[Rfam]
RNA sequence: ACUGUGGAGUGUACAGGAACCUGUGAGUAGAUAUGGCUUUAGUCAAUCAAAAGCAUACACGAAGAAGCAGUAA
Numbered sequence: 001a002c003u004g005u006g007g008a009g010u011g012u013a014c015a016g017g018a019a020c021c022u023g024u025g026a027g028u029a030g031a032u033a034u035g036g037c038u039u040u041a042g043u044c045a046a047u048c049a050a051a052a053g054c055a056u057a058c059a060c061g062a063a064g065a066a067g068c069a070g071u072a073a
Stems, first nucleotide, its partner, number of pairs: 001071005009060005022055003030048003034045002
RNA: RAGATH-18 RNA